mir-8/mir-141/mir-200 microRNA precursor family: a 68-nucleotide RNA from Chara braunii. NCBI's taxonomy places the organism under Eukaryota, Streptophyta, Charophyceae, Charales, Chara. Rfam links the family to the GO terms miRNA-mediated post-transcriptional gene silencing and RISC complex. It scores 49 bits against the family's covariance model. The family has 164 seed sequences and 2,669 matches in Rfam 15.1. On this family, see Lagos-Quintana et al., RNA 2003: "New microRNAs from mouse and human".
RNA sequence: GCCUACGUUUUACCGGGCAGCUCUGUUUGACUAUUUAUAUAAACAGAGCUGCCCGGUAAAACGUAGGC
Numbered sequence: 001g002c003c004u005a006c007g008u009u010u011u012a013c014c015g016g017g018c019a020g021c022u023c024u025g026u027u028u029g030a031c032u033a034u035u036u037a038u039a040u041a042a043a044c045a046g047a048g049c050u051g052c053c054c055g056g057u058a059a060a061a062c063g064u065a066g067g068c
Stems, first nucleotide, its partner, number of pairs: 002067026